[Rfam]
Rfam assigns this 76-nucleotide RNA sequence from Anaeroplasma bactoclasticum to the family "c-di-GMP-I riboswitch aptamer". The match comes from Rfam's covariance-model search (63 bits). The family's consensus secondary structure is taken from published work.
RNA sequence: AAUUGAAUAGGGCAAAGUAUUCGAAAGGAUAUGACGCAAAGCUAUAGGGCCUUUAAAAUGGCAGCCAGUUGCAUAA
Numbered sequence: 001a002a003u004u005g006a007a008u009a010g011g012g013c014a015a016a017g018u019a020u021u022c023g024a025a026a027g028g029a030u031a032u033g034a035c036g037c038a039a040a041g042c043u044a045u046a047g048g049g050c051c052u053u054u055a056a057a058a059u060g061g062c063a064g065c066c067a068g069u070u071g072c073a074u075a076a
Stems, first nucleotide, its partner, number of pairs: 012037002017032006040070004047066002049062003